[Rfam]
RNA sequence: GGAACUGACUACUAGGGUUCCGGUCGCCGAAGGAUGAAUUCGGCUGAUGUCUGGUCCGAGAGUGGCCCGGCCUCGCAAGAGGCUCCACGGAGGGAUAAAAGCCCGGGAGAA
Numbered sequence: 001g002g003a004a005c006u007g008a009c010u011a012c013u014a015g016g017g018u019u020c021c022g023g024u025c026g027c028c029g030a031a032g033g034a035u036g037a038a039u040u041c042g043g044c045u046g047a048u049g050u051c052u053g054g055u056c057c058g059a060g061a062g063u064g065g066c067c068c069g070g071c072c073u074c075g076c077a078a079g080a081g082g083c084u085c086c087a088c089g090g091a092g093g094g095a096u097a098a099a100a101g102c103c104c105g106g107g108a109g110a111a
Base pairs, nucleotide, nucleotide: 007067009065010064011063012062015057016056020054021053022051023048024047025046026045028043069084070083071082072081073080074079086106088109092104093103094102

Guanidine-I riboswitch aptamer: a 111-nucleotide RNA sequence from Polaromonas sp. CG9_12.
Its family is annotated with regulation of gene expression in the Gene Ontology.
Pairs were carried over by alignment from the consensus structure.